Rfam assigns this 130-nucleotide RNA sequence from Brassica rapa to the family "MIR9555 microRNA precursor family". Gene Ontology terms of the family: RISC complex and miRNA-mediated post-transcriptional gene silencing. The family's consensus secondary structure was predicted with RNAalifold. A search with the family's covariance model found it, with a score of 120 bits. The source organism's lineage runs through Eukaryota, eudicotyledons, Gunneridae, malvids and Brassica.
RNA sequence: UUAUAUAUGCGUAUGUAAUUGCAGGGUUCUAAGUUUUACAGAAAAUCCAACCGAAAAUUUUUUACUUAAGAAACUUUCAGUUGGAUUUCUUGUAAAACUUAGAACCCCGCAAUUACAUACAUAUAUAUAA
Dot-bracket structure: (((((((((.((((((((((((.((.(((((((((((((((............................((((.((......)).))))))))))))))))))).)).)))))))))))).)))))))))